A member of the RNA family "Deltacoronavirus 3'UTR" from Deltacoronavirus zosteropis, 387 nucleotides long. The pairing is the family consensus, mapped onto this sequence. A reference for the family is Goebel et al. (2004), "The 3' cis-acting genomic replication element of the severe acute respiratory syndrome coronavirus can function in the murine coronavirus genome", J Virol. Rfam's curators write: There are two smaller hairpins and the hypervariable region (HVR) present in the 3' UTR of deltacoronaviruses. The pseudoknot structure which is typical for alpha- and betacoronaviruses has not been predicted in deltacoronaviruses thus far.
RNA sequence: UAGCAAUGUUGCCUGUUCUUUGUUAUAUUAUGGAACACUAUGACCUCUAUAGUGUUAAUCAAUAUUUAGUAUGAGAGGCAAUCAGAGGGCGCUAUCAUGCAAACUAGGAUUGUCUGCUCAUGCACAGAACCAACUACCGAUAACUAACAGUGCAUGAAGGUUAGUUAUUCCAUAUUAAUUGCACCGAGGCCACGCGGAGUACGAUCGAGGGUACAGUGCACUCACUUAAUUGUUAUUGUGUAAUUACAGCCACCACAGAGAAAUUUAAAGGUCUGUACUAGUUUACUAGGUGUAGCAGAUGCUCCAUGAUGAGAAAGCGCUGUGGUGGGGAAUAAUUGCAUGGGGUAAUUUGGGUAAAAUUAAUUUGGUUUAGAUGGGGUAGUUAGC
Numbered sequence: 001u002a003g004c005a006a007u008g009u010u011g012c013c014u015g016u017u018c019u020u021u022g023u024u025a026u027a028u029u030a031u032g033g034a035a036c037a038c039u040a041u042g043a044c045c046u047c048u049a050u051a052g053u054g055u056u057a058a059u060c061a062a063u064a065u066u067u068a069g070u071a072u073g074a075g076a077g078g079c080a081a082u083c084a085g086a087g088g089g090c091g092c093u094a095u096c097a098u099g100c101a102a103a104c105u106a107g108g109a110u111u112g113u114c115u116g117c118u119c120a121u122g123c124a125c126a127g128a129a130c131c132a133a134c135u136a137c138c139g140a141u142a143a144c145u146a147a148c149a150g151u152g153c154a155u156g157a158a159g160g161u162u163a164g165u166u167a168u169u170c171c172a173u174a175u176u177a178a179u180u181g182c183a184c185c186g187a188g189g190c191c192a193c194g195c196g197g198a199g200u201a202c203g204a205u206c207g208a209g210g211g212u213a214c215a216g217u218g219c220a221c222u223c224a225c226u227u228a229a230u231u232g233u234u235a236u237u238g239u240g241u242a243a244u245u246a247c248a249g250c251c252a253c254c255a256c257a258g259a260g261a262a263a264u265u266u267a268a269a270g271g272u273c274u275g276u277a278c279u280a281g282u283u284u285a286c287u288a289g290g291u292g293u294a295g296c297a298g299a300u301g302c303u304c305c306a307u308g309a310u311g312a313g314a315a316a317g318c319g320c321u322g323u324g325g326u327g328g329g330g331a332a333u334a335a336u337u338g339c340a341u342g343g344g345g346u347a348a349u350u351u352g353g354g355u356a357a358a359a360u361u362a363a364u365u366u367g368g369u370u371u372a373g374a375u376g377g378g379g380u381a382g383u384u385a386g387c
Stems, first nucleotide, its partner, number of pairs: 034056009072120004076115008086105002091100002133383006139169010170368003174364006181219004189212003193207002195203002228350005238341009250328009271300006278289004302313003